[Rfam]
RNA sequence: GAGUUAGUGUUAUGUCGCGAGGUUAACCCGUGUGGGGUAUCCGUAGCGAAAGCGAGUCUGAAUAGGGCGUUUGAGUGGCAUGACCUAGACCCGAAGCGGAGUGAUCUAUCCAUGGCCAGGUUGAAGCGACGGUAAGACGUCGUGGAGGACCGAACCCACUUCAGUUGAAAAUGGAGGGGAUGAGCUGUGGAUAGGGGUGAAAGGCCAAUCAAACUCUGUGAUAGCUGGUU
Numbered sequence: 001g002a003g004u005u006a007g008u009g010u011u012a013u014g015u016c017g018c019g020a021g022g023u024u025a026a027c028c029c030g031u032g033u034g035g036g037g038u039a040u041c042c043g044u045a046g047c048g049a050a051a052g053c054g055a056g057u058c059u060g061a062a063u064a065g066g067g068c069g070u071u072u073g074a075g076u077g078g079c080a081u082g083a084c085c086u087a088g089a090c091c092c093g094a095a096g097c098g099g100a101g102u103g104a105u106c107u108a109u110c111c112a113u114g115g116c117c118a119g120g121u122u123g124a125a126g127c128g129a130c131g132g133u134a135a136g137a138c139g140u141c142g143u144g145g146a147g148g149a150c151c152g153a154a155c156c157c158a159c160u161u162c163a164g165u166u167g168a169a170a171a172u173g174g175a176g177g178g179g180a181u182g183a184g185c186u187g188u189g190g191a192u193a194g195g196g197g198u199g200a201a202a203g204g205c206c207a208a209u210c211a212a213a214c215u216c217u218g219u220g221a222u223a224g225c226u227g228g229u230u
Base pairs, nucleotide, nucleotide: 005087006086007085009084010083011082012081013080014079015078016077017076018075021042022041024039027036028035029034046053047052090228091227093225097218098217099216100215101214102213106194107193108192109191110190111189112188113187114186115185116184117182119151120150121149122148126143127142128141129140130139131138156179157178159176162173163172196206197205198204
The family of this 230-nucleotide part of an RNA from Rothia mucilaginosa is "Archaeal large subunit ribosomal RNA". The organism belongs to Rothia mucilaginosa, within Bacteria. The family's consensus secondary structure is taken from published work.